A member of the RNA family "Small nucleolar RNA Z102/R77" from Castanea mollissima, 84 nucleotides long. A search with the family's covariance model found it, with a score of 72 bits. Pairs were carried over by alignment from the consensus structure, which was predicted with PFOLD. On this family, see Chen et al., Nucleic Acids Res 2003: "The high diversity of snoRNAs in plants: identification and comparative study of 120 snoRNA genes from Oryza sativa". Clan: SNORD44 clan. By type it is a C/D-box small nucleolar RNA.
[Rfam]
RNA sequence: GGAGAACGUGAGGAAUAUGUUUCCCUAUUGGUUUGAUUGCCGAUAUGAUGGCAUCAAUCAUGUAUUAGCUCUAGCUGAUUGUUC
Numbered sequence: 001g002g003a004g005a006a007c008g009u010g011a012g013g014a015a016u017a018u019g020u021u022u023c024c025c026u027a028u029u030g031g032u033u034u035g036a037u038u039g040c041c042g043a044u045a046u047g048a049u050g051g052c053a054u055c056a057a058u059c060a061u062g063u064a065u066u067a068g069c070u071c072u073a074g075c076u077g078a079u080u081g082u083u084c
Stems, first nucleotide, its partner, number of pairs: 002083002005080001035055001038053004